[Rfam]
RNA sequence: AGCGGCACGGAUGCCGCUCGUAUUAAACAGUAGCGAGUUUCGGCACCGCCGAAACUCGCAGUCAAAACUAUACAAGGAUGUAUAGUUUUGACGAUGC
Numbered sequence: 001a002g003c004g005g006c007a008c009g010g011a012u013g014c015c016g017c018u019c020g021u022a023u024u025a026a027a028c029a030g031u032a033g034c035g036a037g038u039u040u041c042g043g044c045a046c047c048g049c050c051g052a053a054a055c056u057c058g059c060a061g062u063c064a065a066a067a068c069u070a071u072a073c074a075a076g077g078a079u080g081u082a083u084a085g086u087u088u089u090g091a092c093g094a095u096g097c
Stems, first nucleotide, its partner, number of pairs: 001018006034058011061092013

The record is a 97-nucleotide RNA sequence from Treponema vincentii, which matches "TD-2 RNA" in Rfam. For this family Rfam cites "Identification of 22 candidate structured RNAs in bacteria using the CMfinder comparative genomics pipeline" (Weinberg et al., Nucleic Acids Res, 2007). The family is grouped with related families in Rfam's "TD (Treponema denticola) motifs". A search with the family's covariance model found it, with a score of 70 bits. The family's RNA type in Rfam is small RNA. NCBI's taxonomy places the organism under Bacteria, Spirochaetota, Treponematales, Treponema, Treponema vincentii.